[Rfam]
RNA sequence: CUUAUAGAUAUCUUUGGCAUUCUGUCCACCUCCUUUACAUAUGUGUAUGGACGAUGUGUUUUGUGAGUGGAGGUGGGCAUACUGCCAAUAGAGACCUGUUAG
Numbered sequence: 001c002u003u004a005u006a007g008a009u010a011u012c013u014u015u016g017g018c019a020u021u022c023u024g025u026c027c028a029c030c031u032c033c034u035u036u037a038c039a040u041a042u043g044u045g046u047a048u049g050g051a052c053g054a055u056g057u058g059u060u061u062u063g064u065g066a067g068u069g070g071a072g073g074u075g076g077g078c079a080u081a082c083u084g085c086c087a088a089u090a091g092a093g094a095c096c097u098g099u100u101a102g
Base pairs, nucleotide, nucleotide: 011092014088015087016086017085018084019083023079024078025077026076027075028074029073030072031071032070033069
RNA: MIR394 microRNA precursor family
Organism: Brassica cretica